This 130-nucleotide sequence from Streptomyces ruber belongs to the Rfam family "Streptomyces RNA 5676". The organism belongs to Streptomyces, within Bacteria. Rfam describes the family as follows. Identified by deep sequencing of transcriptome at the end of exponential growth phase. Appears longer on northern blot than sequencing transcript. The family's RNA type in Rfam is small RNA.
RNA sequence: GGAUGAGAGACACACCCCGCCCGCGGGCGACCACGGGCGGCACCAGGCCGGGGCCUCCCCAGCUCCGUCCCGGUCGCGCGGUCGCGCACAACACCGGGGCCUCCGGCUCCGGGUCUCCUCACCGAUCGGA
Numbered sequence: 001g002g003a004u005g006a007g008a009g010a011c012a013c014a015c016c017c018c019g020c021c022c023g024c025g026g027g028c029g030a031c032c033a034c035g036g037g038c039g040g041c042a043c044c045a046g047g048c049c050g051g052g053g054c055c056u057c058c059c060c061a062g063c064u065c066c067g068u069c070c071c072g073g074u075c076g077c078g079c080g081g082u083c084g085c086g087c088a089c090a091a092c093a094c095c096g097g098g099g100c101c102u103c104c105g106g107c108u109c110c111g112g113g114u115c116u117c118c119u120c121a122c123c124g125a126u127c128g129g130a
Stems, first nucleotide, its partner, number of pairs: 004121004009117002017040007025032002042074003046070002049067006076089001078087002094112008122129002